[Rfam]
RNA sequence: UUUAAAUGCAAGAAUAAAUUUUCGUGCCUAACUUUAAUCGUCGUCUUAUUUAAUUUUUUUAAAUUAAUACUUUUAUUGUUAUGAGAUGAUAAAAUAUGAAUAAUACUUUUUACGUAACUUAUGUUUUUUUAACUUUUUUAAGAAAAACUUUUUAAAUAAAAUGGACGGUUAAAUGUGUACAUGAAAAAUCAUGACUGUAUUUAAA
Numbered sequence: 001u002u003u004a005a006a007u008g009c010a011a012g013a014a015u016a017a018a019u020u021u022u023c024g025u026g027c028c029u030a031a032c033u034u035u036a037a038u039c040g041u042c043g044u045c046u047u048a049u050u051u052a053a054u055u056u057u058u059u060u061a062a063a064u065u066a067a068u069a070c071u072u073u074u075a076u077u078g079u080u081a082u083g084a085g086a087u088g089a090u091a092a093a094a095u096a097u098g099a100a101u102a103a104u105a106c107u108u109u110u111u112a113c114g115u116a117a118c119u120u121a122u123g124u125u126u127u128u129u130u131a132a133c134u135u136u137u138u139u140a141a142g143a144a145a146a147a148c149u150u151u152u153u154a155a156a157u158a159a160a161a162u163g164g165a166c167g168g169u170u171a172a173a174u175g176u177g178u179a180c181a182u183g184a185a186a187a188a189u190c191a192u193g194a195c196u197g198u199a200u201u202u203a204a205a
Stems, first nucleotide, its partner, number of pairs: 029177002033173009042163003046159006
This 205-nucleotide RNA from Oryza glumipatula belongs to the Rfam family "MIR812 microRNA precursor family".
The source organism's lineage runs through Eukaryota, Liliopsida, Petrosaviidae, Oryzeae and Oryza.
Its family is annotated with RISC complex and miRNA-mediated post-transcriptional gene silencing in the Gene Ontology.